The family of this 155-nucleotide RNA from Pelagibacterium lentulum is "FMN riboswitch aptamer (RFN element)". A search with the family's covariance model found it, with a score of 115 bits. Rfam 15.1 lists 6,230 matches to the family in 5,120 species. The source organism's lineage runs through Bacteria, Pseudomonadota, Hyphomicrobiales, Devosiaceae and Pelagibacterium.
RNA sequence: AUACAUUCUCAGGGCGGGGUGGAAGUCCCCACCGGCGGUAAACAGGCCAUCAAGGCCUGAAGCCCGCGAGCGCCUUUGCCGAUUGCGGCGAAGGGUCAGCAGAUUCGGUGCAACUCCGAAGCCGACGGUCAUAGUCCGGAUGAAAGAGAAUGGGA
Numbered sequence: 001a002u003a004c005a006u007u008c009u010c011a012g013g014g015c016g017g018g019g020u021g022g023a024a025g026u027c028c029c030c031a032c033c034g035g036c037g038g039u040a041a042a043c044a045g046g047c048c049a050u051c052a053a054g055g056c057c058u059g060a061a062g063c064c065c066g067c068g069a070g071c072g073c074c075u076u077u078g079c080c081g082a083u084u085g086c087g088g089c090g091a092a093g094g095g096u097c098a099g100c101a102g103a104u105u106c107g108g109u110g111c112a113a114c115u116c117c118g119a120a121g122c123c124g125a126c127g128g129u130c131a132u133a134g135u136c137c138g139g140a141u142g143a144a145a146g147a148g149a150a151u152g153g154g155a
Stems, first nucleotide, its partner, number of pairs: 004152007017029003031135002033124002035067004062122002070100002104120005126138003